[Rfam]
Shown here is a 98-nucleotide sequence, a member of the family "RT-19 RNA". It is one of the family's seed sequences.
RNA sequence: ACUACCCUCCGCUUUCGGGGAUAUGCGAGAGGGCAAGCCUCGGCCAUGCCGAAAAUCGAAUCAAGCACGCGGCUGGUAGCACAUUGCGAACGCCGCCA
Numbered sequence: 001a002c003u004a005c006c007c008u009c010c011g012c013u014u015u016c017g018g019g020g021a022u023a024u025g026c027g028a029g030a031g032g033g034c035a036a037g038c039c040u041c042g043g044c045c046a047u048g049c050c051g052a053a054a055a056u057c058g059a060a061u062c063a064a065g066c067a068c069g070c071g072g073c074u075g076g077u078a079g080c081a082c083a084u085u086g087c088g089a090a091c092g093c094c095g096c097c098a
Stems, first nucleotide, its partner, number of pairs: 005033005010027003069096005079087003